[Rfam]
RNA sequence: UGAAGGCACAGAGCUUAGCUAAUUGCUGAGCAUUGAUCCCUCUUAUGUGUUGUUCACAGUGGCUAAGUUCAGUGUCUGAG
Numbered sequence: 001u002g003a004a005g006g007c008a009c010a011g012a013g014c015u016u017a018g019c020u021a022a023u024u025g026c027u028g029a030g031c032a033u034u035g036a037u038c039c040c041u042c043u044u045a046u047g048u049g050u051u052g053u054u055c056a057c058a059g060u061g062g063c064u065a066a067g068u069u070c071a072g073u074g075u076c077u078g079a080g
Stems, first nucleotide, its partner, number of pairs: 011070010027056006
RNA: mir-27 microRNA precursor family
Organism: Esox lucius